[Rfam]
RNA: Mammalian CPEB3 ribozyme
Organism: Alligator sinensis
RNA sequence: AUCACAAAUUUCAGGUCACAGCAGGAGCAUCCACGGCGCAGCCCUGUCAGAGUCCAACGAAUCUGCAAAUUCUGCU
Numbered sequence: 001a002u003c004a005c006a007a008a009u010u011u012c013a014g015g016u017c018a019c020a021g022c023a024g025g026a027g028c029a030u031c032c033a034c035g036g037c038g039c040a041g042c043c044c045u046g047u048c049a050g051a052g053u054c055c056a057a058c059g060a061a062u063c064u065g066c067a068a069a070u071u072c073u074g075c076u
Base pairs, nucleotide, nucleotide: 014043015042016041020076021075022074023073024072025071026070027039028038048065049064050063051062053060054059